This 68-nucleotide RNA from Homo sapiens belongs to the Rfam family "mir-451 microRNA precursor family".
[Rfam]
RNA sequence: UGGGUAUAGCAAGAGAACCAUUACCAUUACUAAACUCAGUAAUGGUAACGGUUUCCUUGCCAUUCCCA
Number, nucleotide and partner (000 for none) at each position: 001u000002g000003g000004g000005u000006a063007u062008a000009g000010c059011a058012a057013g000014a000015g000016a053017a052018c051019c050020a000021u048022u047023a046024c045025c044026a043027u042028u041029a040030c039031u038032a000033a000034a000035c000036u000037c000038a031039g030040u029041a028042a027043u026044g025045g024046u023047a022048a021049c000050g019051g018052u017053u016054u000055c000056c000057u012058u011059g010060c000061c000062a007063u006064u000065c000066c000067c000068a000
The family's consensus secondary structure was predicted with RNAalifold.